RNA: Bacterial large signal recognition particle RNA
Organism: Blautia obeum
RNA sequence: CCGCGCAGCCGGGGAGAUAGCGGUGCCCUGUACCUGCAAUCCGCUACAGCAGGGGUGAUGCCAAUCUGAGGUUUGUCUCCUGUGGAGCUGCCCUUUAUAAGUGGCGUUGACGUUUGGGUCUCACGCAACAGGAAUCUGUGAACCGUGUCAGGACAGGAAUGUAGCAGCACUAAGCAGAAGCUCUUGUGUGCCGUGAGGGUGCCUGGGCCGAGUUAACUGUAAAGGUAACGUUCAUGGGAACAUUUCGAAGUGCGGCGCGCGG
Dot-bracket structure: ((((((.(((((((.(.(...).).))))...(((((...........))))))))....((...((..((..(...(((((((((..((..((((((..(((((......((((((((((((((((.(((((.(((((.....((((....(((....)))....))))...)))))...)))))))...))))))...))))))))...))).)).)))))).))...)))))))))..)..))..))...)).))))))